[Rfam]
RNA sequence: GUAGUCGGAUUCACGUUAAUCCACAUGUGUUGAUGUGGAUUUGUGUGGAACUUGAACUAAAUUUCACUCCACCCACACCAACACAUAUGGAUUGAAGUGAAUCCGAUA
Dot-bracket structure: ...(((((((((((.((((((((.((((((((..((((.(..(.(((.................))).).).))))..)))))))).)))))))).))))))))))).